[Rfam]
RNA sequence: UCUUCAGUGAUGAUUAACAAACUUUCGUUCUUCUGAGUUUACUGAAGCCAAUAUUUCUGUCCUGAGAAGA
Numbered sequence: 001u002c003u004u005c006a007g008u009g010a011u012g013a014u015u016a017a018c019a020a021a022c023u024u025u026c027g028u029u030c031u032u033c034u035g036a037g038u039u040u041a042c043u044g045a046a047g048c049c050a051a052u053a054u055u056u057c058u059g060u061c062c063u064g065a066g067a068a069g070a
Stems, first nucleotide, its partner, number of pairs: 001070003005066001
Rfam assigns this 70-nucleotide sequence from Gasterosteus aculeatus to the family "Small nucleolar RNA SNORD59". Its Rfam clan is "SNORD59 clan". Rfam 15.1 lists 1,355 matches to the family in 620 species. Rfam's curators put it in the seed alignment.